[Rfam]
RNA sequence: AAGUUCAGGGAUCGCCCCCCGUCAGCGAGUUUCGCCCACGGGGGACAAUUGC
Numbered sequence: 001a002a003g004u005u006c007a008g009g010g011a012u013c014g015c016c017c018c019c020c021g022u023c024a025g026c027g028a029g030u031u032u033c034g035c036c037c038a039c040g041g042g043g044g045a046c047a048a049u050u051g052c
Base pairs, nucleotide, nucleotide: 016044017043018042019041020040021039022038025035026034027033028032

Shown here is a 52-nucleotide RNA from Primorskyibacter sedentarius, a member of the family "ffh sRNA". The source organism's lineage runs through Bacteria, Pseudomonadota, Rhodobacterales, Roseobacteraceae and Primorskyibacter. Rfam classes the family as a small RNA. The literature on the family includes a 2009 paper in BMC Genomics by Meyer et al., "Identification of candidate structured RNAs in the marine organism 'Candidatus Pelagibacter ubique'". The family's consensus secondary structure is taken from published work.